[Rfam]
Rfam assigns this 143-nucleotide RNA from Glycine max to the family "MIR1520 microRNA precursor family". The family is grouped with related families in Rfam's "MIR1520 microRNA precursor clan".

RNA sequence: UUUUUAUUGGAUGAUGACUAUCACGUGUUAUAUUCUGAUUGGAUGUCAACUUCAUGGAAAAUGAAAUACAUUGUUGUUUCAUUGAUCAAUGACACGUGACAGUCAUCAUCCAAUAAGAACGGGACAUGUGACAGUCAUUGUAA
Numbered sequence: 001u002u003u004u005u006a007u008u009g010g011a012u013g014a015u016g017a018c019u020a021u022c023a024c025g026u027g028u029u030a031u032a033u034u035c036u037g038a039u040u041g042g043a044u045g046u047c048a049a050c051u052u053c054a055u056g057g058a059a060a061a062u063g064a065a066a067u068a069c070a071u072u073g074u075u076g077u078u079u080c081a082u083u084g085a086u087c088a089a090u091g092a093c094a095c096g097u098g099a100c101a102g103u104c105a106u107c108a109u110c111c112a113a114u115a116a117g118a119a120c121g122g123g124a125c126a127u128g129u130g131a132c133a134g135u136c137a138u139u140g141u142a143a
Stems, first nucleotide, its partner, number of pairs: 021131003025127002029123001031121001033119004038114008
The match comes from Rfam's covariance-model search (94 bits).